[Rfam]
RNA: mir-460 microRNA precursor family
RNA sequence: CUUUACAGUUCCUGCAUUGUACACACUGUGCAUAUAUGUUACAUAAGCACAGCGCAUACAAUGUGGAUGCUGUGCUA
Numbered sequence: 001c002u003u004u005a006c007a008g009u010u011c012c013u014g015c016a017u018u019g020u021a022c023a024c025a026c027u028g029u030g031c032a033u034a035u036a037u038g039u040u041a042c043a044u045a046a047g048c049a050c051a052g053c054g055c056a057u058a059c060a061a062u063g064u065g066g067a068u069g070c071u072g073u074g075c076u077a
Stems, first nucleotide, its partner, number of pairs: 012066002015063007024054001026052006
Dot-bracket structure: ...........((.(((((((..(.((((((...............)))))).)..))))))).))...........